Shown here is a 75-nucleotide RNA sequence from Bagarius yarrelli, a member of the family "Small nucleolar RNA SNORD83". The match comes from Rfam's covariance-model search (47 bits). Taxonomically the source falls in Bagarius (Eukaryota, Gnathostomata, Actinopterygii, Characiphysae).
RNA sequence: GCCACAUGAUGUUAUACAGAUGACAUUAGCUCUCUGCGAAGAUGACCUCGUAUCUAUCACCCGAGACUGAUGGCU
Numbered sequence: 001g002c003c004a005c006a007u008g009a010u011g012u013u014a015u016a017c018a019g020a021u022g023a024c025a026u027u028a029g030c031u032c033u034c035u036g037c038g039a040a041g042a043u044g045a046c047c048u049c050g051u052a053u054c055u056a057u058c059a060c061c062c063g064a065g066a067c068u069g070a071u072g073g074c075u
Stems, first nucleotide, its partner, number of pairs: 001074004029037002